[Rfam]
RNA sequence: AACGUUCCUCGUUAGCAUGAGGCGUUUGCACAAACACAGGCUACUGCCCGGAAACGUCGAAAGACGCCAAUGGGUAGACCAGGUAUUGCCGGCUUAAGGCUCUACUUAAGGUAGCUGGUCCCUCGGGACCUACGUUGUGCACUGCUGAAAAAACUACGAGUGGGGAAUCGG
Numbered sequence: 001a002a003c004g005u006u007c008c009u010c011g012u013u014a015g016c017a018u019g020a021g022g023c024g025u026u027u028g029c030a031c032a033a034a035c036a037c038a039g040g041c042u043a044c045u046g047c048c049c050g051g052a053a054a055c056g057u058c059g060a061a062a063g064a065c066g067c068c069a070a071u072g073g074g075u076a077g078a079c080c081a082g083g084u085a086u087u088g089c090c091g092g093c094u095u096a097a098g099g100c101u102c103u104a105c106u107u108a109a110g111g112u113a114g115c116u117g118g119u120c121c122c123u124c125g126g127g128a129c130c131u132a133c134g135u136u137g138u139g140c141a142c143u144g145c146u147g148a149a150a151a152a153a154c155u156a157c158g159a160g161u162g163g164g165g166a167a168u169c170g171g
Stems, first nucleotide, its partner, number of pairs: 005167006011157002013097001018150001021146003027141007040115005046075005055066004082106004088100003117130003

Rfam assigns this 171-nucleotide sequence from Geomonas silvestris to the family "M-box riboswitch aptamer (ykoK leader)". A search with the family's covariance model found it, with a score of 134 bits. Gene Ontology terms of the family: response to magnesium ion and regulation of gene expression.